The family of this 56-nucleotide sequence from Trypanosoma cruzi is "Trypanosomatid snoRNA TB10Cs2H1". By type it is an H/ACA-box small nucleolar RNA. It scores 59 bits against the family's covariance model. Lineage of the source: Eukaryota > Metakinetoplastina > Trypanosomatidae > Schizotrypanum > Trypanosoma cruzi. Rfam 15.1 lists 34 matches to the family in 14 species.
[Rfam]
RNA sequence: GCGUUGUCGGUUGGGUCAGCGGCACGUGUUCUCCCUGUAACCCUAUCUCGCAACCC
Number, nucleotide and partner (000 for none) at each position: 001g056002c000003g054004u053005u052006g051007u050008c000009g000010g000011u000012u000013g043014g042015g041016u000017c000018a000019g000020c000021g000022g000023c000024a000025c000026g000027u000028g000029u000030u000031c000032u000033c000034c000035c000036u000037g000038u000039a000040a000041c015042c014043c013044u000045a000046u000047c000048u000049c000050g007051c006052a005053a004054c003055c000056c001